[Rfam]
RNA sequence: AGGACUUACGAUUGUAAGUUGCCCUGGAUAAGGGCGUCUGCUAAAUGGCCAUAC
Numbered sequence: 001a002g003g004a005c006u007u008a009c010g011a012u013u014g015u016a017a018g019u020u021g022c023c024c025u026g027g028a029u030a031a032g033g034g035c036g037u038c039u040g041c042u043a044a045a046u047g048g049c050c051a052u053a054c
Stems, first nucleotide, its partner, number of pairs: 013043001014041003020036006